Small nucleolar RNA SNORA23: a 180-nucleotide sequence from Phrynocephalus forsythii.
The source organism's lineage runs through Eukaryota, Euteleostomi, Amniota, Sauria and Phrynocephalus.
Rfam links the family to the GO terms RNA processing and nucleolus.
The members of this family belong to the H/ACA class of snoRNAs which are thought to guide the sites of modification of uridines to pseudouridines. This family includes human snoRNA ACA23 (SNORA23) and mouse snoMBI-1.
The family's RNA type in Rfam is H/ACA-box small nucleolar RNA.
The literature on the family includes a 2001 paper in EMBO J by Huttenhofer et al., "RNomics: an experimental approach that identifies 201 candidates for novel, small, non-messenger RNAs in mouse".

RNA sequence: GCAGUCAUGUGUGCAUAGCUUCUCAUCUAUGCCUGGCGCAUGGUCUUUAUGCGUUCUGCAUUUAGACUGUGUUGCUCACACACCAUCUGUGGCCUCAGAGCAACCUGAGAUCAUAGUACUGGCCUAGUGCUGUCAAAAGACAACCUUAUCACUGGCCAGCCUCCAAACUCUCAAACAGAU
Numbered sequence: 001g002c003a004g005u006c007a008u009g010u011g012u013g014c015a016u017a018g019c020u021u022c023u024c025a026u027c028u029a030u031g032c033c034u035g036g037c038g039c040a041u042g043g044u045c046u047u048u049a050u051g052c053g054u055u056c057u058g059c060a061u062u063u064a065g066a067c068u069g070u071g072u073u074g075c076u077c078a079c080a081c082a083c084c085a086u087c088u089g090u091g092g093c094c095u096c097a098g099a100g101c102a103a104c105c106u107g108a109g110a111u112c113a114u115a116g117u118a119c120u121g122g123c124c125u126a127g128u129g130c131u132g133u134c135a136a137a138a139g140a141c142a143a144c145c146u147u148a149u150c151a152c153u154g155g156c157c158a159g160c161c162u163c164c165a166a167a168c169u170c171u172c173a174a175a176c177a178g179a180u
Stems, first nucleotide, its partner, number of pairs: 013090003030082002034078003037074002039071003043067004050060003106173005119159006126153004131142004